[Rfam]
RNA sequence: GCCGCCGUCAUUGGGGAGUAGCCGCCUCCGCGUCGUCAGCGCGAUCGGGAGGAGCCCACGUCAACAAACUCGGUCGAAGACCGUGGCGUGUGCGGGAUGUCCAGGCGAGACCUUUGACUCUGUCAUCCAGCAGCCGGGCCGGCGAUGGAAGGCAGGGUCAAUGGUGUCCACGCUCGCCGGCCCC
Numbered sequence: 001g002c003c004g005c006c007g008u009c010a011u012u013g014g015g016g017a018g019u020a021g022c023c024g025c026c027u028c029c030g031c032g033u034c035g036u037c038a039g040c041g042c043g044a045u046c047g048g049g050a051g052g053a054g055c056c057c058a059c060g061u062c063a064a065c066a067a068a069c070u071c072g073g074u075c076g077a078a079g080a081c082c083g084u085g086g087c088g089u090g091u092g093c094g095g096g097a098u099g100u101c102c103a104g105g106c107g108a109g110a111c112c113u114u115u116g117a118c119u120c121u122g123u124c125a126u127c128c129a130g131c132a133g134c135c136g137g138g139c140c141g142g143c144g145a146u147g148g149a150a151g152g153c154a155g156g157g158u159c160a161a162u163g164g165u166g167u168c169c170a171c172g173c174u175c176g177c178c179g180g181c182c183c184c
Stems, first nucleotide, its partner, number of pairs: 025052005054093002057090007071083005096184001099181003